Rfam assigns this 268-nucleotide sequence from Neofusicoccum parvum to the family "Fungal signal recognition particle RNA".
On this family, see Regalia et al., Nucleic Acids Res 2002: "Prediction of signal recognition particle RNA genes".
Taxonomically the source falls in Neofusicoccum parvum (Eukaryota, Dikarya, leotiomyceta, Botryosphaeriales).
It is annotated as a non-coding RNA gene.
Its family is annotated with SRP-dependent cotranslational protein targeting to membrane, signal sequence recognition, signal recognition particle, plasma membrane targeting and signal recognition particle, endoplasmic reticulum targeting in the Gene Ontology.
Pairs were carried over by alignment from the consensus structure, which is taken from published work.
RNA sequence: CGGCUGUAAUGGUCAUAAUUCUGAGAGGUGCAUUGAAACCGUAAUGUCUUUCCCUUUCAACUGCCAGGGCGAGGGCCCAGUUCGAAUCCGGUGGUGCCCGACCAACUCGCACAGGUAACUUGCGAUGAAGGCGGGCCUAAGCAAUGAAGUCGACCGUCGAGGGAAGCAAUUCUGCAGACACGUCUUCACCAUUGGAUGGCGGUGCUGGAAUACCCUUGCCUUGGUUUGGGAUGGGCGUUACGGACUGAUGAAUCAACCAGGUAAUCUU
Numbered sequence: 001c002g003g004c005u006g007u008a009a010u011g012g013u014c015a016u017a018a019u020u021c022u023g024a025g026a027g028g029u030g031c032a033u034u035g036a037a038a039c040c041g042u043a044a045u046g047u048c049u050u051u052c053c054c055u056u057u058c059a060a061c062u063g064c065c066a067g068g069g070c071g072a073g074g075g076c077c078c079a080g081u082u083c084g085a086a087u088c089c090g091g092u093g094g095u096g097c098c099c100g101a102c103c104a105a106c107u108c109g110c111a112c113a114g115g116u117a118a119c120u121u122g123c124g125a126u127g128a129a130g131g132c133g134g135g136c137c138u139a140a141g142c143a144a145u146g147a148a149g150u151c152g153a154c155c156g157u158c159g160a161g162g163g164a165a166g167c168a169a170u171u172c173u174g175c176a177g178a179c180a181c182g183u184c185u186u187c188a189c190c191a192u193u194g195g196a197u198g199g200c201g202g203u204g205c206u207g208g209a210a211u212a213c214c215c216u217u218g219c220c221u222u223g224g225u226u227u228g229g230g231a232u233g234g235g236c237g238u239u240a241c242g243g244a245c246u247g248a249u250g251a252a253u254c255a256a257c258c259a260g261g262u263a264a265u266c267u268u
Base pairs, nucleotide, nucleotide: 002014003013004012020261021260022259023258027254028253029252031250032249033248036246039243040242041241042240043239044238045237046236047235048234049233051231052230053229054228064223067221068220069219070218071217072216073215074214075213077208078207079206080205081204082202083201084200086197087196088195089194090193091192092191093190094189096136097135098134099133100132102130105126107125108124109123110122111121113120114119137141145188146187147186148185149184151182156179157178158177163172164171165170